[Rfam]
RNA sequence: GUCUUCUCAUUGAGCUCCUUUCUGUCUGUUGGUGGCAGUUUAUGGAUUCACACAAGAAGAGACAAUCUACAGAAUUAACAUCAUUUUACCUUCUGUCUUUACAGAGGUAUACUUGGCAGUUUUGUAAGACAUUC
Numbered sequence: 001g002u003c004u005u006c007u008c009a010u011u012g013a014g015c016u017c018c019u020u021u022c023u024g025u026c027u028g029u030u031g032g033u034g035g036c037a038g039u040u041u042a043u044g045g046a047u048u049c050a051c052a053c054a055a056g057a058a059g060a061g062a063c064a065a066u067c068u069a070c071a072g073a074a075u076u077a078a079c080a081u082c083a084u085u086u087u088a089c090c091u092u093c094u095g096u097c098u099u100u101a102c103a104g105a106g107g108u109a110u111a112c113u114u115g116g117c118a119g120u121u122u123u124g125u126a127a128g129a130c131a132u133u134c
Base pairs, nucleotide, nucleotide: 003059004058005057006056007055014051016046017045018044022038023037024036025035026034068126069125070124071123072122090107091106092105093104094103095102
The record is a 134-nucleotide RNA from Carlito syrichta, which matches "Small nucleolar RNA SNORA75" in Rfam.
Gene Ontology terms of the family: RNA processing and nucleolus.
U23 belongs to the H/ACA class of snoRNAs. snoRNAs bind a number of proteins (including dyskerin, Gar1p and Nop10p in the case of the H/ACA class) to form snoRNP complexes. This class are thought to guide the sites of modification of uridines to pseudouridines by forming direct base pairing interactions with substrate RNAs.
It scores 98 bits against the family's covariance model.
By type it is an H/ACA-box small nucleolar RNA.
The organism belongs to Carlito, within Eukaryota.
The family's consensus secondary structure was predicted with PFOLD.
On this family, see Ganot et al., Genes Dev 1997: "The family of box ACA small nucleolar RNAs is defined by an evolutionarily conserved secondary structure and ubiquitous sequence elements essential for RNA accumulation".
Rfam 15.1 lists 414 matches to the family in 310 species.